[Rfam]
RNA sequence: UGUAAGUAAGGGUAGAAAGGUCCCUACCGCACCUCUUACCCGCUGUAAGAGGUAUCUGAGAUGUUGGAUACACCGCCCAACUGCUUACA
Numbered sequence: 001u002g003u004a005a006g007u008a009a010g011g012g013u014a015g016a017a018a019g020g021u022c023c024c025u026a027c028c029g030c031a032c033c034u035c036u037u038a039c040c041c042g043c044u045g046u047a048a049g050a051g052g053u054a055u056c057u058g059a060g061a062u063g064u065u066g067g068a069u070a071c072a073c074c075g076c077c078c079a080a081c082u083g084c085u086u087a088c089a
Stems, first nucleotide, its partner, number of pairs: 001089008011028005019074003030058001031053009063081005

The family of this 89-nucleotide RNA is "skipping-rope RNA". It is one of the family's seed sequences.